This 92-nucleotide RNA sequence from Rheinheimera sp. SA_1 belongs to the Rfam family "t44 RNA". NCBI's taxonomy places the organism under Bacteria, Gammaproteobacteria, Chromatiales, Chromatiaceae, Rheinheimera. Pairs were carried over by alignment from the consensus structure, which was predicted with LocARNA.
[Rfam]
RNA sequence: CCAAACUUAAUUAAAUAACACACAUACACCGUCACAUAAGCCGGGGUGCCAGUGAAAACUGGUCGGAUUUAUGGGGUGUAUGGAGGCCUAAC
Numbered sequence: 001c002c003a004a005a006c007u008u009a010a011u012u013a014a015a016u017a018a019c020a021c022a023c024a025u026a027c028a029c030c031g032u033c034a035c036a037u038a039a040g041c042c043g044g045g046g047u048g049c050c051a052g053u054g055a056a057a058a059c060u061g062g063u064c065g066g067a068u069u070u071a072u073g074g075g076g077u078g079u080a081u082g083g084a085g086g087c088c089u090a091a092c
Base pairs, nucleotide, nucleotide: 023082024081025080026079027078028077029076030075035073036072037071038070039069041066042065043064048063049062050061051060052059